Shown here is a 92-nucleotide RNA, a member of the family "chrB-a RNA".
The family's consensus secondary structure is taken from published work.
Rfam's curators put it in the seed alignment.
Rfam classes the family as a cis-regulatory element.

RNA sequence: GUGAUGGGGAUUGCGAUCUCCCCACGAGGCGACAGGCCGAAGCAUCGCGUCCGCACAGACUGCCUCUUUUCAACGUGCAAGGACGCGCGAUG
Numbered sequence: 001g002u003g004a005u006g007g008g009g010a011u012u013g014c015g016a017u018c019u020c021c022c023c024a025c026g027a028g029g030c031g032a033c034a035g036g037c038c039g040a041a042g043c044a045u046c047g048c049g050u051c052c053g054c055a056c057a058g059a060c061u062g063c064c065u066c067u068u069u070u071c072a073a074c075g076u077g078c079a080a081g082g083a084c085g086c087g088c089g090a091u092g
Stems, first nucleotide, its partner, number of pairs: 005024006047086006